RNA sequence: UAAAUACCUCGUUAGGUGAGGCUCCUGUGCUGGAGAUAUGCUGCUGCCCAAAAACGUCGAAAGACGCCAAUGGGUCAACAGAAACCAUCGACAUAAGGUGGUUUUUAACGUAGCUGGAUGUUUAUCCUAUGCCGCACAGUGCUAAAGCUCUACGAAUGGAGGAAACGA
Numbered sequence: 001u002a003a004a005u006a007c008c009u010c011g012u013u014a015g016g017u018g019a020g021g022c023u024c025c026u027g028u029g030c031u032g033g034a035g036a037u038a039u040g041c042u043g044c045u046g047c048c049c050a051a052a053a054a055c056g057u058c059g060a061a062a063g064a065c066g067c068c069a070a071u072g073g074g075u076c077a078a079c080a081g082a083a084a085c086c087a088u089c090g091a092c093a094u095a096a097g098g099u100g101g102u103u104u105u106u107a108a109c110g111u112a113g114c115u116g117g118a119u120g121u122u123u124a125u126c127c128u129a130u131g132c133c134g135c136a137c138a139g140u141g142c143u144a145a146a147g148c149u150c151u152a153c154g155a156a157u158g159g160a161g162g163a164a165a166c167g168a
Stems, first nucleotide, its partner, number of pairs: 005164001007162004011153002013096001015149003020143003025139006032133002040114005046075005055066004081105004087099003116127003
The record is a 168-nucleotide RNA from Anaerobacillus alkaliphilus, which matches "M-box riboswitch aptamer (ykoK leader)" in Rfam. NCBI's taxonomy places the organism under Bacteria, Bacillati, Bacillota, Caryophanales, Anaerobacillus. A reference for the family is Ramesh et al. (2011), "Insights into metalloregulation by M-box riboswitch RNAs via structural analysis of manganese-bound complexes", J Mol Biol.